[Rfam]
RNA: Plastid-psbA-3 3UTR RNA
RNA sequence: AAAAGGAGCAAUAACCCACUUCUUGUUUUAUCAAGGGGGCGUUAUUGCUCCUUUUUU
Numbered sequence: 001a002a003a004a005g006g007a008g009c010a011a012u013a014a015c016c017c018a019c020u021u022c023u024u025g026u027u028u029u030a031u032c033a034a035g036g037g038g039g040c041g042u043u044a045u046u047g048c049u050c051c052u053u054u055u056u057u
Stems, first nucleotide, its partner, number of pairs: 002054014020037006